Rfam assigns this 187-nucleotide sequence from Nocardiopsis ansamitocini to the family "Actinobacteria sRNA Ms_IGR-5". The organism belongs to Nocardiopsis, within Bacteria. On this family, see Li et al., RNA 2013: "Identification of small RNAs in Mycobacterium smegmatis using heterologous Hfq".
RNA sequence: ACGCAAGAGAGGAGGUGGUCCGAAAGUGCAUUCUUUUAGGACUCGCGAGGUGUUCGUCCGCUAGGGCGAGCCGCUUUUCGGAUCGCUCCGGCGAAUCCGCGAUGGACACCCAGACCCUCGGGCGGCCGGCUUUGUCCAACCGGCCCCGGUCACCCCGACCGGAUAAGACGCCCGGGGGUCUGUCCAU
Dot-bracket structure: .............(((((...................................)))))((((.((((((.(((.....))).)))))).))))..................(((((((((((((.((((.(.........................).))))......)))))))))))))......